Small nucleolar RNA Z157/R69/R10: a 100-nucleotide RNA from Momordica charantia.
It scores 64 bits against the family's covariance model.
Its family is annotated with nucleolus and RNA processing in the Gene Ontology.
By type it is a C/D-box small nucleolar RNA.
NCBI's taxonomy places the organism under Eukaryota, Euphyllophyta, Pentapetalae, fabids, Momordica.
On this family, see Chen et al., Nucleic Acids Res 2003: "The high diversity of snoRNAs in plants: identification and comparative study of 120 snoRNA genes from Oryza sativa".
[Rfam]
RNA sequence: UGUGGUGCGGUGAUGAGGCUAUUUAAUUGGACUAGAGUUUCUGAUCUGGGCACAAUUCCCGGGAUCUGAUUAAUAUACCCUUGGCUGUCUGAGCACUCUC
Numbered sequence: 001u002g003u004g005g006u007g008c009g010g011u012g013a014u015g016a017g018g019c020u021a022u023u024u025a026a027u028u029g030g031a032c033u034a035g036a037g038u039u040u041c042u043g044a045u046c047u048g049g050g051c052a053c054a055a056u057u058c059c060c061g062g063g064a065u066c067u068g069a070u071u072a073a074u075a076u077a078c079c080c081u082u083g084g085c086u087g088u089c090u091g092a093g094c095a096c097u098c099u100c
Base pairs, nucleotide, nucleotide: 002099004097005096006095007094008093040069041068045064046062047061048060049059050058